[Rfam]
This 79-nucleotide RNA sequence from Culex quinquefasciatus belongs to the Rfam family "mir-11 microRNA precursor family".
RNA sequence: GUGCCGCGCGAGAACUCCGGCUGUGACCUGUGUGCCCCGUGUUGAACUUCACAUCACAGUCUGAGUUCUUGCUUGGCGC
Numbered sequence: 001g002u003g004c005c006g007c008g009c010g011a012g013a014a015c016u017c018c019g020g021c022u023g024u025g026a027c028c029u030g031u032g033u034g035c036c037c038c039g040u041g042u043u044g045a046a047c048u049u050c051a052c053a054u055c056a057c058a059g060u061c062u063g064a065g066u067u068c069u070u071g072c073u074u075g076g077c078g079c
Stems, first nucleotide, its partner, number of pairs: 004076003009071009021059006030052003
Clan: mir-6 clan. The family's consensus secondary structure was predicted with RNAalifold.